S15-Halobacteria ribosomal protein leader: a 71-nucleotide sequence from Halorubrum vacuolatum. Taxonomically the source falls in Halorubrum (Archaea, Methanobacteriati, Halobacteriales, Haloferacaceae). Pairs were carried over by alignment from the consensus structure, which is taken from published work.
RNA sequence: UUGGGAACAGCACAGCUAUAGAUCCGACGCGCCGGGGCCUAUUCGCCCACGGCUUGGGAAUGUAGCAGUGC
Numbered sequence: 001u002u003g004g005g006a007a008c009a010g011c012a013c014a015g016c017u018a019u020a021g022a023u024c025c026g027a028c029g030c031g032c033c034g035g036g037g038c039c040u041a042u043u044c045g046c047c048c049a050c051g052g053c054u055u056g057g058g059a060a061u062g063u064a065g066c067a068g069u070g071c
Stems, first nucleotide, its partner, number of pairs: 010071004015066006024058002031053004036048002
Dot-bracket structure: .........((((.((((((...((.....((((.((.........)).))))...))..)))))).))))